[Rfam]
RNA sequence: UGGUCAAAUGCUGUAUGGAAGACUAGUGAUUUUGUUGUUGUAAUAUAUAAAGACAACAAAACACAGCCUGCCUUACAGCGUGGACAC
Numbered sequence: 001u002g003g004u005c006a007a008a009u010g011c012u013g014u015a016u017g018g019a020a021g022a023c024u025a026g027u028g029a030u031u032u033u034g035u036u037g038u039u040g041u042a043a044u045a046u047a048u049a050a051a052g053a054c055a056a057c058a059a060a061a062c063a064c065a066g067c068c069u070g071c072c073u074u075a076c077a078g079c080g081u082g083g084a085c086a087c
Stems, first nucleotide, its partner, number of pairs: 003085003008081002011078005017072002020069002023066002026064003030060003034057006
A member of the RNA family "mir-7 microRNA precursor family" from Monodelphis domestica, 87 nucleotides long. Pairs were carried over by alignment from the consensus structure, which was predicted with PFOLD. Rfam 15.1 lists 2,589 matches to the family in 797 species. This family represents the microRNA (miRNA) precursor mir-7. It scores 71 bits against the family's covariance model.